RNA: Bacteroidales small SRP
Organism: Panacibacter microcysteis
RNA sequence: UUUGCAGCGGCAGGUCUUACACGACCAGCUCGCUUUGAACCUCCCCAGGGCAGGAAUGCAGCAAGGAUAUUAGCUUGAGCGGUGCGAUGUAAUUAGCCUGCCAUUUU
Numbered sequence: 001u002u003u004g005c006a007g008c009g010g011c012a013g014g015u016c017u018u019a020c021a022c023g024a025c026c027a028g029c030u031c032g033c034u035u036u037g038a039a040c041c042u043c044c045c046c047a048g049g050g051c052a053g054g055a056a057u058g059c060a061g062c063a064a065g066g067a068u069a070u071u072a073g074c075u076u077g078a079g080c081g082g083u084g085c086g087a088u089g090u091a092a093u094u095a096g097c098c099u100g101c102c103a104u105u106u107u
Stems, first nucleotide, its partner, number of pairs: 009102007017092005022086002024083002